This 77-nucleotide RNA from Phyllotreta striolata belongs to the Rfam family "mir-190 microRNA precursor family". For this family Rfam cites "MicroRNA discovery and profiling in human embryonic stem cells by deep sequencing of small RNA libraries" (Bar et al., Stem Cells, 2008).

[Rfam]
RNA sequence: AUUUCCGUAAGAUAUGUUUGAUAUUCUUGGUUGUCGUUUAGCAAACACCCAGGAGUCAAACAUAUUAUUACGGAGGU
Dot-bracket structure: ....(((((.((((((((((((.((...((.((............)).)).)).))))))))))))..)))))....
Numbered sequence: 001a002u003u004u005c006c007g008u009a010a011g012a013u014a015u016g017u018u019u020g021a022u023a024u025u026c027u028u029g030g031u032u033g034u035c036g037u038u039u040a041g042c043a044a045a046c047a048c049c050c051a052g053g054a055g056u057c058a059a060a061c062a063u064a065u066u067a068u069u070a071c072g073g074a075g076g077u
Stems, first nucleotide, its partner, number of pairs: 005073005011066012024053002029050002032047002
About this RNA:
Its Rfam clan is "mir-50 clan".